[Rfam]
RNA: Small nucleolar RNA snoR100
RNA sequence: AAAGGAAGGAAGCAUGGUAAUGUGCACGGAGAUCGACUGAAUUGGUCUGCAUGUCUGCUCGCCCUGACGCCUUCGGGCUUUGAUCUCGCGGGCCUGGAUUUGACCCACACUA
Numbered sequence: 001a002a003a004g005g006a007a008g009g010a011a012g013c014a015u016g017g018u019a020a021u022g023u024g025c026a027c028g029g030a031g032a033u034c035g036a037c038u039g040a041a042u043u044g045g046u047c048u049g050c051a052u053g054u055c056u057g058c059u060c061g062c063c064c065u066g067a068c069g070c071c072u073u074c075g076g077g078c079u080u081u082g083a084u085c086u087c088g089c090g091g092g093c094c095u096g097g098a099u100u101u102g103a104c105c106c107a108c109a110c111u112a
Stems, first nucleotide, its partner, number of pairs: 012025004044094004053084003057078003
Dot-bracket structure: ...........((((......))))..................((((.....(((.(((................)))...)))......))))..................